[Rfam]
The family of this 72-nucleotide sequence from Ceutorhynchus assimilis is "mir-219 microRNA precursor family".
RNA sequence: UUUGGCGUUGAUUGUCCAAACGCAAUUCUUGAUAUAUUUGAGCAAGGAUUGUGCUAGGACGUCACUGCUAGA
Numbered sequence: 001u002u003u004g005g006c007g008u009u010g011a012u013u014g015u016c017c018a019a020a021c022g023c024a025a026u027u028c029u030u031g032a033u034a035u036a037u038u039u040g041a042g043c044a045a046g047g048a049u050u051g052u053g054c055u056a057g058g059a060c061g062u063c064a065c066u067g068c069u070a071g072a
Stems, first nucleotide, its partner, number of pairs: 002071006009064004014060004021053011

Its family is annotated with miRNA-mediated post-transcriptional gene silencing and RISC complex in the Gene Ontology. Rfam 15.1 lists 1,318 matches to the family in 774 species.